Shown here is a 115-nucleotide sequence from Rhodanobacter glycinis, a member of the family "SAM riboswitch aptamer (S box leader)". A search with the family's covariance model found it, with a score of 76 bits. The source organism's lineage runs through Bacteria, Pseudomonadati, Lysobacterales, Rhodanobacteraceae and Rhodanobacter. The family's consensus secondary structure is taken from published work.
[Rfam]
RNA sequence: CACUCAUCGAGACCGGCUGAGGGACAGGCCCUUUGAAGCCGGGGCAACCUGCAGGUGAUUCCUGCAACGGUGCCAACUCCUGCGGGGCGCUUCGGCGUCAACCGGUAGAUGGGAU
Numbered sequence: 001c002a003c004u005c006a007u008c009g010a011g012a013c014c015g016g017c018u019g020a021g022g023g024a025c026a027g028g029c030c031c032u033u034u035g036a037a038g039c040c041g042g043g044g045c046a047a048c049c050u051g052c053a054g055g056u057g058a059u060u061c062c063u064g065c066a067a068c069g070g071u072g073c074c075a076a077c078u079c080c081u082g083c084g085g086g087g088c089g090c091u092u093c094g095g096c097g098u099c100a101a102c103c104g105g106u107a108g109a110u111g112g113g114a115u
Stems, first nucleotide, its partner, number of pairs: 003113006013042005021031003025082004043074004048070002050066004078107001083104003